[Rfam]
RNA sequence: CAAUCUCCCUCAGAGGCUUCCAAUAUCUCAGUUUAUAGUAAUUGCUUCAAAUAAUGAGAAUGUUGGAUGCCUUUGGGUGAGAUUG
Numbered sequence: 001c002a003a004u005c006u007c008c009c010u011c012a013g014a015g016g017c018u019u020c021c022a023a024u025a026u027c028u029c030a031g032u033u034u035a036u037a038g039u040a041a042u043u044g045c046u047u048c049a050a051a052u053a054a055u056g057a058g059a060a061u062g063u064u065g066g067a068u069g070c071c072u073u074u075g076g077g078u079g080a081g082a083u084u085g
Stems, first nucleotide, its partner, number of pairs: 001085007009077003013073005019067007

Rfam assigns this 85-nucleotide RNA from Populus trichocarpa to the family "MIR477 microRNA precursor family".
A reference for the family is Lu et al. (2005), "Novel and mechanical stress-responsive MicroRNAs in Populus trichocarpa that are absent from Arabidopsis", Plant Cell.
The base pairs follow the family's consensus structure, which was predicted with WAR.
Its family is annotated with miRNA-mediated post-transcriptional gene silencing and RISC complex in the Gene Ontology.